[Rfam]
RNA sequence: UUUAACAAUGGGCAAAGCAGAAGUGAUUCUGUGACGCAAAGCUAUAGGGCCUUAUAGAUGGGAGAUAAUCUGUAAGGUAGCCAGUUGCAAAU
Numbered sequence: 001u002u003u004a005a006c007a008a009u010g011g012g013c014a015a016a017g018c019a020g021a022a023g024u025g026a027u028u029c030u031g032u033g034a035c036g037c038a039a040a041g042c043u044a045u046a047g048g049g050c051c052u053u054a055u056a057g058a059u060g061g062g063a064g065a066u067a068a069u070c071u072g073u074a075a076g077g078u079a080g081c082c083a084g085u086u087g088c089a090a091a092u
Base pairs, nucleotide, nucleotide: 012037013036017032018031019030020029021028022027040086041085042084043083047082048081049078050077051076056071057070058069059068
Background
The family of this 92-nucleotide RNA sequence from Lachnospiraceae bacterium NE2001 is "c-di-GMP-I riboswitch aptamer". GEMM was predicted in a large-scale screen for bacterial structured RNA regulatory elements.